[Rfam]
RNA: mir-17 microRNA precursor family
RNA sequence: CCUUGUGUUAAGGUGCAUCUAGUGCAGUUAGUGACAUAGUGUAGCAUCUACUGCCCUAAAUGCUCCUUUUGGCACAGG
Numbered sequence: 001c002c003u004u005g006u007g008u009u010a011a012g013g014u015g016c017a018u019c020u021a022g023u024g025c026a027g028u029u030a031g032u033g034a035c036a037u038a039g040u041g042u043a044g045c046a047u048c049u050a051c052u053g054c055c056c057u058a059a060a061u062g063c064u065c066c067u068u069u070u071g072g073c074a075c076a077g078g
Stems, first nucleotide, its partner, number of pairs: 002077002008071001011067003015063004020058003024054002027052001029050003